The family of this 160-nucleotide RNA from Amphibacillus xylanus is "Ribosomal protein L10 leader". The organism belongs to Amphibacillus xylanus, within Bacteria. Rfam classes the family as a cis-regulatory leader.
Nucleotides: 160
Base pairs, nucleotide, nucleotide: 028057029056030055031054032053034045035044036043119145120144121143122142123141124140125139126138127137128136
Number, partner (000 for none) and nucleotide at each position: 001000u002000u003000a004000a005000a006000a007000u008000a009000a010000a011000u012000a013000g014000u015000u016000a017000u018000a019000c020000c021000g022000u023000a024000g025000a026000c027000a028057g029056c030055a031054g032053g033000g034045g035044c036043u037000c038000a039000u040000u041000a042000a043036a044035g045034c046000u047000u048000a049000a050000u051000a052000g053032c054031c055030u056029g057028c058000c059000g060000a061000g062000g063000u064000g065000u066000u067000a068000a069000u070000g071000a072000a073000g074000g075000c076000a077000a078000a079000a080000u081000g082000u083000a084000u085000u086000a087000u088000u089000u090000a091000u092000u093000a094000a095000u096000u097000u098000g099000c100000c101000c102000g103000g104000u105000c106000g107000u108000u109000u110000a111000c112000a113000c114000a115000u116000u117000c118000u119145c120144c121143c122142u123141u124140g125139c126138g127137u128136c129000u130000a131000u132000u133000u134000u135000a136128g137127a138126c139125g140124u141123a142122a143121g144120g145119g146000u147000u148000u149000u150000u151000a152000a153000u154000u155000a156000g157000c158000g159000g160000a